[Rfam]
RNA sequence: ACUGCCAGUCUGGUAGUCUGGGUUCAGUUUUUUUCCAAAAAGCCCCGCUGGUCCGGGGCUUUUUGUUGUAUCGACUUUGAGCCGUAGCUGCUCAGACAGGGUGUUAAUUAUCAGUUGGGCUUUAGGCCCUUUUUUU
Numbered sequence: 001a002c003u004g005c006c007a008g009u010c011u012g013g014u015a016g017u018c019u020g021g022g023u024u025c026a027g028u029u030u031u032u033u034u035c036c037a038a039a040a041a042g043c044c045c046c047g048c049u050g051g052u053c054c055g056g057g058g059c060u061u062u063u064u065g066u067u068g069u070a071u072c073g074a075c076u077u078u079g080a081g082c083c084g085u086a087g088c089u090g091c092u093c094a095g096a097c098a099g100g101g102u103g104u105u106a107a108u109u110a111u112c113a114g115u116u117g118g119g120c121u122u123u124a125g126g127c128c129c130u131u132u133u134u135u136u
Stems, first nucleotide, its partner, number of pairs: 039062009117129004
The family of this 136-nucleotide RNA from Salinimonas marina is "Gammaprotebacteria rimP leader". Taxonomically the source falls in Salinimonas (Bacteria, Pseudomonadati, Pseudomonadota, Alteromonadaceae). Pairs were carried over by alignment from the consensus structure, which is taken from published work. Rfam classes the family as a cis-regulatory leader.